[Rfam]
RNA sequence: UGAGCUGUAAUGUCACAUCUGGGACCCACUAGCAGAGUAUAAUUAUUGUCAUCAUUUUGUAAAAAAAAAACACAUAUAUAAAAUAUAUAAAACUGAUAACAAUUAAAAUUACUCAUUAUGUCUCGGGAAGGUCUGAGUAAAGUUCUUUGGUGCAUAGUGAUCAUUGAUCAUUUUUAACCCUCUAGCCGGGGGCGUAAUUUAAAAUUACGAUGAAGAAACCAGAAAUACCACUGUUGGGUCAGACAAUGUUAAGUUGAAGCCCAAUUAGUGUUGGAAAUUCUUCAUGAGCAGCAAUUUUAGUACAAUCUGUGACACGGCAGGACCGUAACUCAAUUCAGACUAGUCUUCAGCUCA
Number, nucleotide and partner (000 for none) at each position: 001u354002g353003a352004g351005c000006u000007g348008u000009a346010a000011u000012g313013u312014c311015a310016c309017a308018u000019c000020u000021g124022g123023g122024a121025c120026c000027c000028a000029c000030u000031a000032g000033c000034a000035g114036a113037g112038u111039a110040u000041a000042a000043u000044u000045a000046u000047u000048g000049u000050c000051a000052u000053c000054a000055u000056u000057u000058u000059g000060u000061a000062a000063a000064a000065a000066a000067a000068a000069a000070a000071c000072a000073c000074a000075u000076a000077u000078a000079u000080a000081a000082a000083a000084u000085a000086u000087a000088u000089a000090a000091a000092a000093c000094u000095g000096a000097u000098a000099a000100c000101a000102a000103u000104u000105a000106a000107a000108a000109u000110u039111a038112c037113u036114c035115a000116u000117u000118a000119u000120g025121u024122c023123u022124c021125g000126g000127g000128a000129a000130g000131g000132u000133c338134u337135g336136a335137g334138u000139a000140a000141a000142g289143u288144u287145c286146u000147u000148u000149g000150g000151u000152g000153c000154a000155u000156a000157g000158u000159g000160a000161u000162c000163a000164u000165u000166g000167a000168u000169c000170a000171u000172u000173u000174u000175u000176a000177a000178c192179c191180c190181u189182c188183u000184a000185g000186c000187c000188g182189g181190g180191g179192g178193c209194g208195u207196a206197a205198u204199u000200u000201a000202a000203a000204a198205u197206u196207a195208c194209g193210a285211u284212g283213a282214a281215g280216a279217a000218a000219c000220c000221a000222g000223a000224a000225a000226u000227a000228c000229c270230a269231c268232u267233g266234u000235u000236g000237g000238g000239u000240c000241a000242g000243a000244c000245a000246a000247u000248g000249u000250u000251a000252a000253g000254u000255u000256g000257a000258a000259g000260c000261c000262c000263a000264a000265u000266u233267a232268g231269u230270g229271u000272u000273g000274g000275a000276a000277a000278u000279u216280c215281u214282u213283c212284a211285u210286g145287a144288g143289c142290a000291g000292c000293a000294a000295u000296u000297u000298u000299a000300g000301u000302a000303c000304a000305a000306u000307c000308u017309g016310u015311g014312a013313c012314a326315c325316g324317g323318c000319a000320g000321g000322a000323c317324c316325g315326u314327a000328a000329c000330u000331c000332a000333a000334u137335u136336c135337a134338g133339a000340c000341u000342a000343g000344u000345c000346u009347u000348c007349a000350g000351c004352u003353c002354a001

The record is a 354-nucleotide RNA from Leptidea sinapis, which matches "Nuclear RNase P" in Rfam. A search with the family's covariance model found it, with a score of 117 bits. Its family is annotated with ribonuclease P complex, tRNA processing and ribonuclease P activity in the Gene Ontology. Rfam's curators write: Ribonuclease P (RNase P) is a ubiquitous endoribonuclease, found in archaea, bacteria and eukarya as well as chloroplasts and mitochondria. Its best characterised activity is the generation of mature 5'-ends of tRNAs by cleaving the 5'-leader elements of precursor-tRNAs. Rfam classes the family as a ribozyme.